[Rfam]
RNA: Mason-Pfizer monkey virus packaging signal
RNA sequence: UGGUGCCCAAACAGGGACCUGGACACCGUGAAAAAAGUGAGGAAGAAGGCACUAAAGUCGGCCAAAAGUGAAAAUGGAAUAAAUUCCUCUGGAUGUUGCGGGAACCUGCCAUGUUGGAACCAGAGUUAAGUAACAGUGUCUGAUUAUGGGACAAGAAUUAAGCCAGCAUCAAAUGUAUGUAGGACAGUUAAAAGAGGCUUUAAAAACUCUAGGAGUAAAGGUUAAAAGUAAUGAUUUGUUUAAAUUUUUUGAUUUUGUAAAGGAUACCUGCCCUU
Dot-bracket structure: .....(.(......(........)...).).......(.......)......................................(..((....(..((.((.......)).)).....)...))...).......((.((((....))))))......((((((...............................))).)))......(.((((((..((((((.......))))))......)))))).)........((((.(....).))))